[Rfam]
RNA sequence: UUUUAACCGCUCCUCACCACAUCUUAGUGAGCUAACGUUCGGAUUUGAGGAGCAAACACCCUGAGCAACCCCGAAAGGAGAGAGCUAUGUCUUUUGAAUUACCGGCAUUACCUUAU
Numbered sequence: 001u002u003u004u005a006a007c008c009g010c011u012c013c014u015c016a017c018c019a020c021a022u023c024u025u026a027g028u029g030a031g032c033u034a035a036c037g038u039u040c041g042g043a044u045u046u047g048a049g050g051a052g053c054a055a056a057c058a059c060c061c062u063g064a065g066c067a068a069c070c071c072c073g074a075a076a077g078g079a080g081a082g083a084g085c086u087a088u089g090u091c092u093u094u095u096g097a098a099u100u101a102c103c104g105g106c107a108u109u110a111c112c113u114u115a116u
Base pairs, nucleotide, nucleotide: 022081023080024079025078032073037069039063041061042060044056045055046054047053084103086101087100090097091096
SodB 5' UTR thermometer: a 116-nucleotide sequence from Yersinia enterocolitica.
Rfam links the family to the GO terms regulation of translation and response to temperature stimulus.
Involved in protection against oxidative stress.
For this family Rfam cites "Temperature-responsive in vitro RNA structurome of Yersinia pseudotuberculosis" (Righetti et al., Proc Natl Acad Sci U S A, 2016).
The pairing is the family consensus, mapped onto this sequence.